[Rfam]
RNA sequence: CCGUUAUCACGAAAGGCCGAGGGACUAGACCCGACGAAGCCUUAGCAACCCUUAAUCUUAAGAAGGUGCUACAUUCUACCGGACGUUUUCCCGGACAGAUAACUC
Number, nucleotide and partner (000 for none) at each position: 001c000002c000003g103004u102005u101006a100007u099008c098009a000010c000011g000012a000013a043014a042015g041016g040017c039018c000019g000020a000021g032022g031023g030024a000025c000026u078027a077028g076029a075030c023031c022032c021033g000034a000035c000036g000037a000038a000039g017040c016041c015042u014043u013044a070045g069046c068047a067048a000049c066050c065051c062052u061053u060054a059055a000056u000057c000058u000059u054060a053061a052062g051063a000064a000065g050066g049067u047068g046069c045070u044071a000072c000073a000074u097075u029076c028077u027078a026079c094080c093081g092082g091083a000084c000085g000086u000087u000088u000089u000090c000091c082092c081093g080094g079095a000096c000097a074098g008099a007100u006101a005102a004103c003104u000105c000
This 105-nucleotide RNA from Flavobacterium agri belongs to the Rfam family "SAM riboswitch aptamer (S box leader)".
The base pairs follow the family's consensus structure, which is taken from published work.